[Rfam]
RNA sequence: CCCGCCACUAUACCAGUCUGGUGUGUCUGGGUAUAUUCCAGUGGUGAGCUUAGAAAGACCUCCUCUUAGGAAACAGAAUGUGUCUGUGUGUGACUGGUUCUGUGCCGAAAGAUUGAGUACAUUC
Numbered sequence: 001c002c003c004g005c006c007a008c009u010a011u012a013c014c015a016g017u018c019u020g021g022u023g024u025g026u027c028u029g030g031g032u033a034u035a036u037u038c039c040a041g042u043g044g045u046g047a048g049c050u051u052a053g054a055a056a057g058a059c060c061u062c063c064u065c066u067u068a069g070g071a072a073a074c075a076g077a078a079u080g081u082g083u084c085u086g087u088g089u090g091u092g093a094c095u096g097g098u099u100c101u102g103u104g105c106c107g108a109a110a111g112a113u114u115g116a117g118u119a120c121a122u123u124c
Stems, first nucleotide, its partner, number of pairs: 005044005018031002021028001023027001060117003064112004069106002074102006082094003

A member of the RNA family "Small nucleolar RNA SNORA65" from Aquarana catesbeiana, 124 nucleotides long. The family has 14 seed sequences and 1,089 matches in Rfam 15.1. The match comes from Rfam's covariance-model search (87 bits). Rfam links the family to the GO terms RNA processing and nucleolus. The literature on the family includes a 2001 paper in EMBO J by Huttenhofer et al., "RNomics: an experimental approach that identifies 201 candidates for novel, small, non-messenger RNAs in mouse". Rfam classes the family as an H/ACA-box small nucleolar RNA. Rfam's curators write: U65 belongs to the H/ACA class of snoRNAs which are thought to guide the sites of modification of uridines to pseudouridines.